Description:
The record is a 57-nucleotide RNA from Limnospira maxima, which matches "Nitrogen stress-induced RNA 1" in Rfam.
RNA sequence: UGGUAGAUGCACCCUGGUUGAUGCCCUGGAGAAAAACAAACUCCGGGGUCUUUUUUU
Dot-bracket structure: .(((......))).........(((((((((.........)))))))))........
Numbered sequence: 001u002g003g004u005a006g007a008u009g010c011a012c013c014c015u016g017g018u019u020g021a022u023g024c025c026c027u028g029g030a031g032a033a034a035a036a037c038a039a040a041c042u043c044c045g046g047g048g049u050c051u052u053u054u055u056u057u
Stems, first nucleotide, its partner, number of pairs: 002013003023049009

The pairing is the family consensus, mapped onto this sequence. The organism belongs to Limnospira maxima, within Bacteria.